[Rfam]
RNA sequence: UUCUAUCUUCGGGGCAGGGUGAAAUUCCCGACCGACGGUAAGAGCUGUUAUAUCAGUUCAAGUCCGUGACCCGCUUGGCAAAUGCCAUGCGGCUGAUCCGGUGCAAGUCCGGAACCGACAGUACAGUCUGGAUGGGAGAAGAUACCG
Numbered sequence: 001u002u003c004u005a006u007c008u009u010c011g012g013g014g015c016a017g018g019g020u021g022a023a024a025u026u027c028c029c030g031a032c033c034g035a036c037g038g039u040a041a042g043a044g045c046u047g048u049u050a051u052a053u054c055a056g057u058u059c060a061a062g063u064c065c066g067u068g069a070c071c072c073g074c075u076u077g078g079c080a081a082a083u084g085c086c087a088u089g090c091g092g093c094u095g096a097u098c099c100g101g102u103g104c105a106a107g108u109c110c111g112g113a114a115c116c117g118a119c120a121g122u123a124c125a126g127u128c129u130g131g132a133u134g135g136g137a138g139a140a141g142a143u144a145c146c147g
Stems, first nucleotide, its partner, number of pairs: 004144007017029003031127002033117002035067004062115002071092002097113005119130003
The family of this 147-nucleotide sequence from Lentibacillus sp. JNUCC-1 is "FMN riboswitch aptamer (RFN element)". The source organism's lineage runs through Bacteria, Bacillati, Bacillota, Bacilli and Lentibacillus. A search with the family's covariance model found it, with a score of 116 bits. A reference for the family is Serganov et al. (2009), "Coenzyme recognition and gene regulation by a flavin mononucleotide riboswitch", Nature.